[Rfam]
RNA: ffh sRNA
RNA sequence: UUAUGUCAGGAUCGCCACCCGCCAGCGCGUUGCGCCCGCGGGUGCAAUACUG
Numbered sequence: 001u002u003a004u005g006u007c008a009g010g011a012u013c014g015c016c017a018c019c020c021g022c023c024a025g026c027g028c029g030u031u032g033c034g035c036c037c038g039c040g041g042g043u044g045c046a047a048u049a050c051u052g
Stems, first nucleotide, its partner, number of pairs: 016044007025035004